[Rfam]
RNA sequence: GUGCAGGCCGUACAGCGAGGUUUGGCCUGUAGUGGCUCUGUCCUUUCUUGUAGUGUCUGCUAGAUAGAAGUGGGGUGGUUUGAGACCCUGCCAUGUCUCCACCACGGCGAGGUUAUAGUUCAACCUCACACGUCA
Numbered sequence: 001g002u003g004c005a006g007g008c009c010g011u012a013c014a015g016c017g018a019g020g021u022u023u024g025g026c027c028u029g030u031a032g033u034g035g036c037u038c039u040g041u042c043c044u045u046u047c048u049u050g051u052a053g054u055g056u057c058u059g060c061u062a063g064a065u066a067g068a069a070g071u072g073g074g075g076u077g078g079u080u081u082g083a084g085a086c087c088c089u090g091c092c093a094u095g096u097c098u099c100c101a102c103c104a105c106g107g108c109g110a111g112g113u114u115a116u117a118g119u120u121c122a123a124c125c126u127c128a129c130a131c132g133u134c135a
Stems, first nucleotide, its partner, number of pairs: 003060006018044003024037004071128005086112002089109003094104002

This 135-nucleotide RNA from Salmo trutta belongs to the Rfam family "Small nucleolar RNA SNORA9". Lineage of the source: Eukaryota > Euteleostomi > Actinopteri > Teleostei > Salmo. Its family is annotated with RNA processing and nucleolus in the Gene Ontology. The family's consensus secondary structure was predicted with PFOLD. ACA9 is a member of the H/ACA class of snoRNA that guide the sites of modification of uridines to pseudouridines. The family has 36 seed sequences and 1,202 matches in Rfam 15.1.